This 79-nucleotide RNA sequence from Methanoculleus taiwanensis belongs to the Rfam family "S15-Methanomicrobia ribosomal protein leader". Pairs were carried over by alignment from the consensus structure, which is taken from published work. Clan: Ribosomal Protein S15 Leader clan. The match comes from Rfam's covariance-model search (57 bits). By type it is a cis-regulatory leader. Lineage of the source: Archaea > Methanobacteriati > Methanobacteriota > Methanomicrobiaceae > Methanoculleus.
[Rfam]
Nucleotides: 079
Stems, first nucleotide, its partner, number of pairs: 001022005030079004036074002041056004058069003
Number, partner (000 for none) and nucleotide at each position: 001022a002021g003020c004019a005018c006000u007000g008000u009000a010000g011000a012000a013000u014000a015000c016000a017000u018005g019004u020003g021002c022001u023000g024000g025000c026000u027000a028000g029000a030079g031078u032077a033076a034000g035000u036074c037073c038000g039000a040000c041056g042055u043054g044053c045000c046000c047000g048000c049000a050000g051000a052000a053044g054043c055042a056041c057000u058069g059068c060067c061000c062000a063000c064000a065000g066000u067060g068059g069058c070000u071000c072000g073037g074036g075000a076033u077032u078031a079030c